The family of this 126-nucleotide sequence from Georhizobium profundi is "Alphaproteobacterial ar14". A search with the family's covariance model found it, with a score of 114 bits. It is annotated as a small RNA. Pairs were carried over by alignment from the consensus structure.
[Rfam]
RNA sequence: AGAAUUCGGAGCGGCAAACUCCUCCUCCCAUUGCCUCUCCGAUAUGAUGGAUGGUUCUCCUCCUCCCAACCAUUCAUCGCCACAAAUGACGCCCGCUGGAUCCUCCUCCCCCAGCGGGCGUUAUUU
Numbered sequence: 001a002g003a004a005u006u007c008g009g010a011g012c013g014g015c016a017a018a019c020u021c022c023u024c025c026u027c028c029c030a031u032u033g034c035c036u037c038u039c040c041g042a043u044a045u046g047a048u049g050g051a052u053g054g055u056u057c058u059c060c061u062c063c064u065c066c067c068a069a070c071c072a073u074u075c076a077u078c079g080c081c082a083c084a085a086a087u088g089a090c091g092c093c094c095g096c097u098g099g100a101u102c103c104u105c106c107u108c109c110c111c112c113a114g115c116g117g118g119c120g121u122u123a124u125u126u
Stems, first nucleotide, its partner, number of pairs: 007041003011037001013035005046078010089121011

Smr14C2 was renamed NfeR1 (Nodule Formation Efficiency RNA) highly expressed in salt stress and during the symbiotic interaction on legume roots. Gene Ontology term of the family: biological process involved in symbiotic interaction.